This 178-nucleotide RNA from Okeania sp. KiyG1 belongs to the Rfam family "Antisense RNA which regulates isiA expression".
A reference for the family is Duhring et al. (2006), "An internal antisense RNA regulates expression of the photosynthesis gene isiA", Proc Natl Acad Sci U S A.
NCBI's taxonomy places the organism under Bacteria, Cyanobacteriota, Oscillatoriales, Microcoleaceae, Okeania.
[Rfam]
RNA sequence: GAUAUCCAUAUAUUACUAAUGGAUCGAGAGUGGGAUUAGUUACUAAACGUACAGUUUGAGUUGUAGCAUCAUAAAGCCCACCAAAAUACAUAGCUUUGGCUACUAAUAAUAGAGCGCCAAAUCCUAAAAAAAGUAGGUGAUGACCUAAGAUUAUUCCUAACUGUUUUGGGUUAUCCCA
Numbered sequence: 001g002a003u004a005u006c007c008a009u010a011u012a013u014u015a016c017u018a019a020u021g022g023a024u025c026g027a028g029a030g031u032g033g034g035a036u037u038a039g040u041u042a043c044u045a046a047a048c049g050u051a052c053a054g055u056u057u058g059a060g061u062u063g064u065a066g067c068a069u070c071a072u073a074a075a076g077c078c079c080a081c082c083a084a085a086a087u088a089c090a091u092a093g094c095u096u097u098g099g100c101u102a103c104u105a106a107u108a109a110u111a112g113a114g115c116g117c118c119a120a121a122u123c124c125u126a127a128a129a130a131a132a133g134u135a136g137g138u139g140a141u142g143a144c145c146u147a148a149g150a151u152u153a154u155u156c157c158u159a160a161c162u163g164u165u166u167u168g169g170g171u172u173a174u175c176c177c178a
Base pairs, nucleotide, nucleotide: 136175137174138173139172140171141170144169145168147166148165
Dot-bracket structure: .......................................................................................................................................((((((..((.((................)).))))))))...